[Rfam]
This 93-nucleotide RNA from Anaerobium acetethylicum belongs to the Rfam family "RT-5 RNA".
RNA sequence: UUGUACCUGCGGUUGGACGAAGCAUAUGCCAAACAUGUUUUGCAGGUGACAGGCAUAUGUUCAGUCUGGUGGCUACGCCUUCAAAGGAUUUUC
Numbered sequence: 001u002u003g004u005a006c007c008u009g010c011g012g013u014u015g016g017a018c019g020a021a022g023c024a025u026a027u028g029c030c031a032a033a034c035a036u037g038u039u040u041u042g043c044a045g046g047u048g049a050c051a052g053g054c055a056u057a058u059g060u061u062c063a064g065u066c067u068g069g070u071g072g073c074u075a076c077g078c079c080u081u082c083a084a085a086g087g088a089u090u091u092u093c
Base pairs, nucleotide, nucleotide: 005047006046007045008044009043010042011041014068015067016066018064022060023059024058025057026056027055028054029053036051037050038049039048071079072078073077
The family's RNA type in Rfam is small RNA. The match comes from Rfam's covariance-model search (60 bits).